This 135-nucleotide RNA sequence from Chenopodium quinoa belongs to the Rfam family "Small nucleolar RNA snoR74".
Rfam links the family to the GO terms RNA processing and nucleolus.
The source organism's lineage runs through Eukaryota, Euphyllophyta, Caryophyllales, Atripliceae and Chenopodium.
Nucleotides: 135
Stems, first nucleotide, its partner, number of pairs: 005051003011040002014037006068128008082117006
Number, partner (000 for none) and nucleotide at each position: 001000a002000u003000a004000a005051a006050a007049g008000c009000a010000a011040g012039g013000u014037c015036c016035u017034a018033u019032u020000g021000c022000c023000a024000a025000u026000a027000u028000u029000g030000u031000g032019a033018a034017u035016g036015g037014g038000u039012c040011u041000c042000u043000c044000g045000u046000a047000a048000a049007c050006u051005u052000c053000a054000g055000g056000g057000a058000a059000a060000u061000u062000a063000a064000g065000u066000g067000u068128g069127c070126a071125u072124u073123g074122u075121u076000c077000u078000u079000g080000g081000g082117u083116g084115a085114a086113c087112c088000a089000c090000u091000g092000g093000a094000g095000u096000u097000u098000u099000u100000u101000c102000u103000a104000u105000g106000a107000u108000a109000g110000c111000a112087g113086g114085u115084u116083c117082a118000g119000u120000a121075a122074a123073c124072g125071a126070u127069g128068c129000u130000a131000c132000a133000u134000u135000u